[Rfam]
RNA sequence: UCGCGGGCCACGCUCCCCCAACGGAGCGCUUCGAUCUGGAAGGAUCGCACAU
Numbered sequence: 001u002c003g004c005g006g007g008c009c010a011c012g013c014u015c016c017c018c019c020a021a022c023g024g025a026g027c028g029c030u031u032c033g034a035u036c037u038g039g040a041a042g043g044a045u046c047g048c049a050c051a052u
Base pairs, nucleotide, nucleotide: 011028012027013026014025015024016023032047033046034045035044036043037042
RNA: serC leader